[Rfam]
RNA: mir-290 microRNA precursor family
RNA sequence: GUAACACUCAAAACAUGGCGGCACUUUUUUUUAAAAACAGAGCAGAAAGUGCCCCCACAGUUUGAGUGCCAC
Numbered sequence: 001g002u003a004a005c006a007c008u009c010a011a012a013a014c015a016u017g018g019c020g021g022c023a024c025u026u027u028u029u030u031u032u033a034a035a036a037a038c039a040g041a042g043c044a045g046a047a048a049g050u051g052c053c054c055c056c057a058c059a060g061u062u063u064g065a066g067u068g069c070c071a072c
Stems, first nucleotide, its partner, number of pairs: 005068008016057003020053006027046003